[Rfam]
RNA sequence: GAAGGUCUACGCUUAGAAGCCUUCGCGCAGAGCCGUGUUAAUAGUACUUCUUCUGGCCGAGAAGUGCGGUUAGUGAAUC
Numbered sequence: 001g002a003a004g005g006u007c008u009a010c011g012c013u014u015a016g017a018a019g020c021c022u023u024c025g026c027g028c029a030g031a032g033c034c035g036u037g038u039u040a041a042u043a044g045u046a047c048u049u050c051u052u053c054u055g056g057c058c059g060a061g062a063a064g065u066g067c068g069g070u071u072a073g074u075g076a077a078u079c
Base pairs, nucleotide, nucleotide: 001024002023003022004021005020006019038073039072040071041070042069044067045066046065047064048063049062050061051060052059
Dot-bracket structure: ((((((............)))))).............(((((.(((((((((......))))))))).)))))......

Shown here is a 79-nucleotide RNA sequence from Segatella albensis, a member of the family "L13-Bacteroidia ribosomal protein leader". Rfam classes the family as a cis-regulatory leader. A reference for the family is Eckert and Weinberg (2020), "Discovery of 20 novel ribosomal leader candidates in bacteria and archaea", BMC Microbiol. The organism belongs to Segatella albensis, within Bacteria. The family's consensus secondary structure is taken from published work.